[Rfam]
RNA sequence: CCUGGCCCUGAUUGUCCAAACGCAAUUCUUGUGUAUUCGUAUCAAGGACUGUGUGUGGACAUCACUGCUCGG
Numbered sequence: 001c002c003u004g005g006c007c008c009u010g011a012u013u014g015u016c017c018a019a020a021c022g023c024a025a026u027u028c029u030u031g032u033g034u035a036u037u038c039g040u041a042u043c044a045a046g047g048a049c050u051g052u053g054u055g056u057g058g059a060c061a062u063c064a065c066u067g068c069u070c071g072g
Stems, first nucleotide, its partner, number of pairs: 002071001004069003009064004014060005021053004026048006

Annotation
Rfam assigns this 72-nucleotide RNA sequence from Callosobruchus maculatus to the family "mir-219 microRNA precursor family". The organism belongs to Callosobruchus, within Eukaryota.